RNA sequence: GUACGAUGAUGAAAUCCAUGCGUGUCAACUGACUCUGUGAGCUGCUGGUGUUGGGAUUGUCUGGUUGGCGUUCUGCUGACCUGAGUUGUCUCUCCAUCAGGGACCCAGAGACAUGAUCAGACGUUCAUGGUUCUGAUUAC
Numbered sequence: 001g002u003a004c005g006a007u008g009a010u011g012a013a014a015u016c017c018a019u020g021c022g023u024g025u026c027a028a029c030u031g032a033c034u035c036u037g038u039g040a041g042c043u044g045c046u047g048g049u050g051u052u053g054g055g056a057u058u059g060u061c062u063g064g065u066u067g068g069c070g071u072u073c074u075g076c077u078g079a080c081c082u083g084a085g086u087u088g089u090c091u092c093u094c095c096a097u098c099a100g101g102g103a104c105c106c107a108g109a110g111a112c113a114u115g116a117u118c119a120g121a122c123g124u125u126c127a128u129g130g131u132u133c134u135g136a137u138u139a140c
Stems, first nucleotide, its partner, number of pairs: 001140003043102001045100006